[Rfam]
RNA sequence: GGGCAUUCGGAAGGCUUGCUAUCUGGGCUACACGCGGAGAACCUGGUUUCUCUCUUCUCGCCCAGGGGAAAGUCCCCGGACCUAUGGCAGAAAGUGUCCCUGGGUGAAACCAGGCUCGGCCCCCGCUGCAUCGUCUGUAAGCUGAGACGUUCACUCGAACAGAGCUUGGUGACGUGGGCCGACAUUGUCAGCGUUAACAGUAAUGCAAGCAGUUACUAACGCGUGAACAGAACGGGGCUCAUUCUCGGAAUGCA
Numbered sequence: 001g002g003g004c005a006u007u008c009g010g011a012a013g014g015c016u017u018g019c020u021a022u023c024u025g026g027g028c029u030a031c032a033c034g035c036g037g038a039g040a041a042c043c044u045g046g047u048u049u050c051u052c053u054c055u056u057c058u059c060g061c062c063c064a065g066g067g068g069a070a071a072g073u074c075c076c077c078g079g080a081c082c083u084a085u086g087g088c089a090g091a092a093a094g095u096g097u098c099c100c101u102g103g104g105u106g107a108a109a110c111c112a113g114g115c116u117c118g119g120c121c122c123c124c125g126c127u128g129c130a131u132c133g134u135c136u137g138u139a140a141g142c143u144g145a146g147a148c149g150u151u152c153a154c155u156c157g158a159a160c161a162g163a164g165c166u167u168g169g170u171g172a173c174g175u176g177g178g179c180c181g182a183c184a185u186u187g188u189c190a191g192c193g194u195u196a197a198c199a200g201u202a203a204u205g206c207a208a209g210c211a212g213u214u215a216c217u218a219a220c221g222c223g224u225g226a227a228c229a230g231a232a233c234g235g236g237g238c239u240c241a242u243u244c245u246c247g248g249a250a251u252g253c254a
Stems, first nucleotide, its partner, number of pairs: 003253006010246002014210006022066007037052005071239002074237004086098004099114005116182003122178005129171003139167004149160004212224002